Record summary
Vault RNA: a 101-nucleotide sequence from Cavia porcellus. The base pairs follow the family's consensus structure, which is taken from published work. This family of RNAs are found as part of the enigmatic vault ribonucleoprotein complex. The complex consists of a major vault protein (MVP), two minor vault proteins (VPARP and TEP1), and several small untranslated RNA molecules. It has been suggested that the vault complex is involved in drug resistance. By type it is a non-coding RNA gene.
RNA sequence: GGGCUGGCUUUAGCUCAGUGGUUCCUUCGAGUUUGGCUUCCAAACCGCCAGGGCCGAUUGGUCAGGUGGUUCGAGACCCACCGGUACUCUCCAGUCCUUUA
Numbered sequence: 001g002g003g004c005u006g007g008c009u010u011u012a013g014c015u016c017a018g019u020g021g022u023u024c025c026u027u028c029g030a031g032u033u034u035g036g037c038u039u040c041c042a043a044a045c046c047g048c049c050a051g052g053g054c055c056g057a058u059u060g061g062u063c064a065g066g067u068g069g070u071u072c073g074a075g076a077c078c079c080a081c082c083g084g085u086a087c088u089c090u091c092c093a094g095u096c097c098u099u100u101a
Base pairs, nucleotide, nucleotide: 002096003095004094005093006092007091013085014084015083018081019080020079021078026075027074028073029072030071